[Rfam]
RNA sequence: CUGGCCUGAGGUAGUUGUUUGUACAGUUUGAGGGUCCGUGAUUCUGCCCGAUAAAGGAGCUAACUGUACAGGCCACUGCCUUGCCUAA
Numbered sequence: 001c002u003g004g005c006c007u008g009a010g011g012u013a014g015u016u017g018u019u020u021g022u023a024c025a026g027u028u029u030g031a032g033g034g035u036c037c038g039u040g041a042u043u044c045u046g047c048c049c050g051a052u053a054a055a056g057g058a059g060c061u062a063a064c065u066g067u068a069c070a071g072g073c074c075a076c077u078g079c080c081u082u083g084c085c086u087a088a
Base pairs, nucleotide, nucleotide: 002087003086004085006083008082009081010080011079012078013077014076015075017073018072019071020070021069022068023067024066025065026064027063032049033048034047035046052059
This 88-nucleotide RNA from Esox lucius belongs to the Rfam family "let-7 microRNA precursor family". On this family, see Rougvie, Nat Rev Genet 2001: "Control of developmental timing in animals". Gene Ontology terms of the family: miRNA-mediated post-transcriptional gene silencing and RISC complex. The family has 64 seed sequences and 8,694 matches in Rfam 15.1. This family represents the microRNAs (miRNA) let-7 and mir-98. let-7 was identified from a study of developmental timing in C. elegans, and was later shown to be part of a much larger class of non-coding RNAs termed miRNAs. Clan: let-7 microRNA precursor clan. The base pairs follow the family's consensus structure, which was predicted with RNAalifold.